RNA sequence: GGGGCUGUAGCUCAAUCGGGAGAGCGCAACACUGGCAGUGUUGAGGUAAGGGGUUCGAAUCCCCUCAGCUCCA
Numbered sequence: 001g002g003g004g005c006u007g008u009a010g011c012u013c014a015a016u017c018g019g020g021a022g023a024g025c026g027c028a029a030c031a032c033u034g035g036c037a038g039u040g041u042u043g044a045g046g047u048a049a050g051g052g053g054u055u056c057g058a059a060u061c062c063c064c065u066c067a068g069c070u071c072c073a
Base pairs, nucleotide, nucleotide: 001072002071003070004069005068006067007066010025011024012023013022027043028042029041030040031039049065050064051063052062053061
Description: Shown here is a 73-nucleotide sequence from Tepidiforma thermophila, a member of the family "tRNA". From the family's description: Transfer RNA (tRNA) molecules are approximately 80 nucleotides in length. Their secondary structure includes four short double-helical elements and three loops (D, anti-codon, and T loops). Further hydrogen bonds mediate the characteristic L-shaped molecular structure. tRNAs have two regions of fundamental functional importance: the anti-codon, which is responsible for specific mRNA codon recognition, and the 3' end, to which the tRNAs corresponding amino acid is attached (by aminoacyl-tRNA synthetases). tRNAs cope with the degeneracy of the genetic code in two manners: having more than one tRNA (with a specific anti-codon) for a particular amino acid; and 'wobble' base-pairing, i.e. permitting non-standard base-pairing at the 3rd anti-codon position. A search with the family's covariance model found it, with a score of 67 bits. NCBI's taxonomy places the organism under Bacteria, Tepidiformia, Tepidiformales, Tepidiformaceae, Tepidiforma. The base pairs follow the family's consensus structure, which is taken from published work. It is annotated as a transfer RNA.